[Rfam]
RNA sequence: GGAUCGGGCGGUCGUCUGUGGGAGGACGACCAGGUAUGGAUCCGGCCCCCCCGUUUCGCCCGGAUGUCCGGCCUUUCCCCAGGGGUCGCGCA
Numbered sequence: 001g002g003a004u005c006g007g008g009c010g011g012u013c014g015u016c017u018g019u020g021g022g023a024g025g026a027c028g029a030c031c032a033g034g035u036a037u038g039g040a041u042c043c044g045g046c047c048c049c050c051c052c053g054u055u056u057c058g059c060c061c062g063g064a065u066g067u068c069c070g071g072c073c074u075u076u077c078c079c080c081a082g083g084g085g086u087c088g089c090g091c092a
Stems, first nucleotide, its partner, number of pairs: 001043005010031008065092003069088006
RNA: Rhodo-rpoB RNA
Organism: Palleronia marisminoris